[Rfam]
RNA sequence: CCGCUCUCACCCCCUUAUCACUUUUCCAGCCCAGCUUCUUCACUGCAACUGUUGGACGGAGAACUGAUAAGGGUGUGCGGGCGG
Dot-bracket structure: ...........(((((((((.((((((..((......................))..)))))).)))))))))...........
mir-184 microRNA precursor family: an 84-nucleotide sequence from Alectura lathami. Pairs were carried over by alignment from the consensus structure, which was predicted with PFOLD. The match comes from Rfam's covariance-model search (75 bits). Rfam links the family to the GO terms RISC complex and gene silencing by miRNA.